[Rfam]
RNA sequence: ACGAUCCUUCAGGACAGGGUGAAAGUCCCUACCGGCGGUGAUCGCUCCUGUAGUGAAAUAGCUGGGGCGUCAGUCCGCGAAGCCACGCGCCCGACCCGGUGUGACUCCGGGACCGACGGUGAUAGUCCGGAUGGGAGAAGGAGGGA
Numbered sequence: 001a002c003g004a005u006c007c008u009u010c011a012g013g014a015c016a017g018g019g020u021g022a023a024a025g026u027c028c029c030u031a032c033c034g035g036c037g038g039u040g041a042u043c044g045c046u047c048c049u050g051u052a053g054u055g056a057a058a059u060a061g062c063u064g065g066g067g068c069g070u071c072a073g074u075c076c077g078c079g080a081a082g083c084c085a086c087g088c089g090c091c092c093g094a095c096c097c098g099g100u101g102u103g104a105c106u107c108c109g110g111g112a113c114c115g116a117c118g119g120u121g122a123u124a125g126u127c128c129g130g131a132u133g134g135g136a137g138a139a140g141g142a143g144g145g146a
Stems, first nucleotide, its partner, number of pairs: 005142006017029003031126002033115002035078004073113002082090002095111005117129003
RNA: FMN riboswitch aptamer (RFN element)
Organism: Truepera sp.